[Rfam]
The record is a 74-nucleotide RNA sequence from Nannospalax galili, which matches "Small nucleolar RNA SNORD99" in Rfam. A search with the family's covariance model found it, with a score of 76 bits.
RNA sequence: GUUGGUCCCGGAUGAAACCUAAUCUGAGUGGACAUCUAUGGAUCAGAAAUUCAGAUAUGGGACUGAGACCAGCU
Numbered sequence: 001g002u003u004g005g006u007c008c009c010g011g012a013u014g015a016a017a018c019c020u021a022a023u024c025u026g027a028g029u030g031g032a033c034a035u036c037u038a039u040g041g042a043u044c045a046g047a048a049a050u051u052c053a054g055a056u057a058u059g060g061g062a063c064u065g066a067g068a069c070c071a072g073c074u
Base pairs, nucleotide, nucleotide: 001073002072003071004070005069
Rfam classes the family as a C/D-box small nucleolar RNA. NCBI's taxonomy places the organism under Eukaryota, Metazoa, Chordata, Amniota, Nannospalax. A reference for the family is Galardi et al. (2002), "Purified box C/D snoRNPs are able to reproduce site-specific 2'-O-methylation of target RNA in vitro", Mol Cell Biol.